A member of the RNA family "mir-130 microRNA precursor family" from Aquarana catesbeiana, 86 nucleotides long.

[Rfam]
RNA sequence: UAUUUACUAAAGGCAAAUCCACAUUGCACUACAAGUGCACUUUCAGUGCACUUGUAGUGCAAUGUGGAUUUGCCUUUAGUAAAGAA
Numbered sequence: 001u002a003u004u005u006a007c008u009a010a011a012g013g014c015a016a017a018u019c020c021a022c023a024u025u026g027c028a029c030u031a032c033a034a035g036u037g038c039a040c041u042u043u044c045a046g047u048g049c050a051c052u053u054g055u056a057g058u059g060c061a062a063u064g065u066g067g068a069u070u071u072g073c074c075u076u077u078a079g080u081a082a083a084g085a086a
Base pairs, nucleotide, nucleotide: 001086003084005081006080007079008078009077010076012074013073014072015071016070017069018068019067022064023063024062025061026060027059028058029057030056031055032054033053034052035051036050037049038048039047040046041045
A reference for the family is Lagos-Quintana et al. (2002), "Identification of tissue-specific microRNAs from mouse", Curr Biol. Rfam links the family to the GO terms miRNA-mediated post-transcriptional gene silencing and RISC complex. The organism belongs to Aquarana, within Eukaryota.